[Rfam]
RNA sequence: ACGCUGGAUAAGGGUUAUACCGCAGUGACUUAUUGCUGCGCAUCGUAGGAGAGCGGCGUCAGAUGUGCAGACAGCGC
Dot-bracket structure: .(((((..((((................))))....((((((((.................))))))))..))))).

Shown here is a 77-nucleotide RNA from Synechococcales cyanobacterium C42_A2020_086, a member of the family "CyVA-1 RNA". Rfam's curators write: Cyanobacteria, Acidobacteria (1 example), Verrucomicrobia (1 example). The organism belongs to Synechococcales, within Bacteria. By type it is a small RNA. Pairs were carried over by alignment from the consensus structure, which is taken from published work.